Small nucleolar RNA R21: an 80-nucleotide RNA sequence from Nicotiana tabacum. The literature on the family includes a 2001 paper in J Mol Biol by Barneche et al., "Identification of 66 box C/D snoRNAs in Arabidopsis thaliana: extensive gene duplications generated multiple isoforms predicting new ribosomal RNA 2'-O-methylation sites". Lineage of the source: Eukaryota > Tracheophyta > Magnoliopsida > Nicotianoideae > Nicotiana. The base pairs follow the family's consensus structure, which was predicted with PFOLD. It is annotated as a C/D-box small nucleolar RNA.

RNA sequence: UAUCCCAUUGAUGAACUAGCUGAAUAAUUUAAAAGUAGUGGCCUGAUGUCCAUUGAUGAGAAGCUUUGUUCUGAGGGAUG
Numbered sequence: 001u002a003u004c005c006c007a008u009u010g011a012u013g014a015a016c017u018a019g020c021u022g023a024a025u026a027a028u029u030u031a032a033a034a035g036u037a038g039u040g041g042c043c044u045g046a047u048g049u050c051c052a053u054u055g056a057u058g059a060g061a062a063g064c065u066u067u068g069u070u071c072u073g074a075g076g077g078a079u080g
Stems, first nucleotide, its partner, number of pairs: 001080006